HBV RNA encapsidation signal epsilon: a 61-nucleotide RNA. The family's RNA type in Rfam is cis-regulatory element. The match comes from Rfam's covariance-model search (65 bits). Its Rfam clan is "Hepadnavirus_epsilon clan".
RNA sequence: UGUUCCUCCCCUACUUUUCAAGCCCCGGAGCUGUGCCUUCGGUGGCUUUGGGGGAUGGAAA
Numbered sequence: 001u002g003u004u005c006c007u008c009c010c011c012u013a014c015u016u017u018u019c020a021a022g023c024c025c026c027g028g029a030g031c032u033g034u035g036c037c038u039u040c041g042g043u044g045g046c047u048u049u050g051g052g053g054g055a056u057g058g059a060a061a
Stems, first nucleotide, its partner, number of pairs: 001061001003059003007055007020048005025042006031035001
On this family, see LeBlanc et al., J Biomol Struct Dyn 2021: "Structural insights of the conserved 'priming loop' of hepatitis B virus pre-genomic RNA". The base pairs follow the family's consensus structure, which is taken from published work. From the family's description: The HBV RNA encapsidation signal epsilon (HBV_epsilon) is an element essential for HBV virus replication.